RNA: mir-493 microRNA precursor family
RNA sequence: CUGGCCCCCAGGGCCUUGUACAUGGUAGGCUUUCAUUCAUUCGGUUGCACACGUGGUGAAGGUCUACUGUGUGCCAGGUCCUGUGCCAG
Numbered sequence: 001c002u003g004g005c006c007c008c009c010a011g012g013g014c015c016u017u018g019u020a021c022a023u024g025g026u027a028g029g030c031u032u033u034c035a036u037u038c039a040u041u042c043g044g045u046u047g048c049a050c051a052c053g054u055g056g057u058g059a060a061g062g063u064c065u066a067c068u069g070u071g072u073g074c075c076a077g078g079u080c081c082u083g084u085g086c087c088a089g
Stems, first nucleotide, its partner, number of pairs: 009083008018074020